[Rfam]
RNA sequence: GAGAACUAAUUUCUCGAUAGGUGGAAUGAAGAGGUAACGCUCUGAAACGCCUACUCUAAUACUCCGACAUGCCAUUUCUAUGGUUAAAUAGAUUGGUAUGAAGCUCGGUGAAGUCGGCAGAGAGAUACCGUAAGUUGAUAAGGGGCAUUCCUUGUCAAUCACGAAAGCUGUCUAGCGGUAGAUGGUGUAUCCUAUAUGCCGGGAGUCCAUAAA
Dot-bracket structure: .................((((((.......(.((.....)).)....))))))((((......(((((((((((..(((((......))))).)))))))....))))......(((((....((((((((.............................)))...((((((((....))))))))))))).....)))))))))........
Rfam assigns this 213-nucleotide sequence from Niallia circulans to the family "Group II catalytic intron D1-D4-5". The pairing is the family consensus, mapped onto this sequence. The family has 139 seed sequences and 720 matches in Rfam 15.1.